[Rfam]
RNA sequence: GCUGGAGGACUAAGAAGGCUGAGUCUGAUGAAGCAAGACUCUGCUGAUACAAUCCUCCUAAAAUAAAGGGUGGAGAGAGCAGCCCUUAUUGGAGAAUAUCACAGGGUUGACUGUACUACCCAACAUUU
Numbered sequence: 001g002c003u004g005g006a007g008g009a010c011u012a013a014g015a016a017g018g019c020u021g022a023g024u025c026u027g028a029u030g031a032a033g034c035a036a037g038a039c040u041c042u043g044c045u046g047a048u049a050c051a052a053u054c055c056u057c058c059u060a061a062a063a064u065a066a067a068g069g070g071u072g073g074a075g076a077g078a079g080c081a082g083c084c085c086u087u088a089u090u091g092g093a094g095a096a097u098a099u100c101a102c103a104g105g106g107u108u109g110a111c112u113g114u115a116c117u118a119c120c121c122a123a124c125a126u127u128u
Base pairs, nucleotide, nucleotide: 003060004058005057006056007055008054009053017045018044019043021041022040023039025037026036068121069120070119071118078112079111080109081108082107083106084105085104086103090101091100092099
The family of this 128-nucleotide RNA from Myotis lucifugus is "Small Cajal body specific RNA 4". The sequence is in the family's curated seed alignment. Pairs were carried over by alignment from the consensus structure, which was predicted with RNAfold. The family has 24 seed sequences and 634 matches in Rfam 15.1. For this family Rfam cites "Cajal body-specific small nuclear RNAs: a novel class of 2'-O-methylation and pseudouridylation guide RNAs" (Darzacq et al., EMBO J, 2002). scaRNAs are a specific class of small nuclear RNAs which localise to the Cajal bodies and guide the modification of RNA polymerase II transcribed spliceosomal RNAs U1, U2, U4, U5 and U12. ACA26 belongs to the H/ACA box class of guide RNAs as it has the predicted hairpin-hinge-hairpin-tail structure, conserved H/ACA-box motifs and is found associated with GAR1. NCBI's taxonomy places the organism under Eukaryota, Opisthokonta, Metazoa, Teleostomi, Myotis.